Streptomyces sRNA 4677: a 256-nucleotide sequence. By type it is a small RNA. About the family: Located in the intergenic region between anti-sigma factor SCO4677 gene and a putative regulatory protein gene SCO4676. scr4677 expression requires the SCO4677 activity and scr4677 sRNA itself seem to affect the levels of the SCO4676-associated transcripts.

RNA sequence: GGCGCCGGUGGCGCGGGACGCUCUAAGAACCCAUAACCACAGGGAAAAAACCAACCAACCAAACCGAACCGAACCCCACGGGUUCGCACGCCUGUGUCGCACAGUGGGGUGAUCCAGGGGCUCUGGGCUGGCUUUUCCGUGGCGGUGGGGUGCAGGCUCGGCGGCAACGCCCCCAAGUCCCCAGAAAGCAAUCGGCCCCCGGCGGGACGGGCAUCCCGGUCGAGGGCCUGACCACCCAGGAAGCAGAACCUUCCCG
Dot-bracket structure: ......((((.....((.(..............................................................)))............((((.(....).))))..............(((((..........................)))))...............................(((((.((..((((......))))...)).)))))....))))..(((((......)))))..